[Rfam]
RNA sequence: GACUCAUCCAAAAGUAGUAGAUUACCUCAACUGAUUGUUCAUAUUCAGUUGCAGGUUAAUCUCCUUGUUCUCACUUUCCCCUCUUCCUGCUACUGCACUAGACUAGUCUUUU
Numbered sequence: 001g002a003c004u005c006a007u008c009c010a011a012a013a014g015u016a017g018u019a020g021a022u023u024a025c026c027u028c029a030a031c032u033g034a035u036u037g038u039u040c041a042u043a044u045u046c047a048g049u050u051g052c053a054g055g056u057u058a059a060u061c062u063c064c065u066u067g068u069u070c071u072c073a074c075u076u077u078c079c080c081c082u083c084u085u086c087c088u089g090c091u092a093c094u095g096c097a098c099u100a101g102a103c104u105a106g107u108c109u110u111u112u
Stems, first nucleotide, its partner, number of pairs: 001108004007102002011099001014096002016091005043075001045073001047071002
The record is a 112-nucleotide RNA sequence from Falcunculus frontatus, which matches "Y RNA" in Rfam. About the family: Y RNAs are components of the Ro ribonucleoprotein particle (Ro RNP), in association with Ro60 and La proteins. The Y RNAs and Ro60 and La proteins are well conserved, but the function of the Ro RNP is not known. In humans the RNA component can be one of four small RNAs -- hY1, hY3, hY4 and hY5. The organism belongs to Falcunculus, within Eukaryota. For this family Rfam cites "Caenorhabditis elegans embryos contain only one major species of Ro RNP" (Van Horn et al., RNA, 1995). The match comes from Rfam's covariance-model search (39 bits).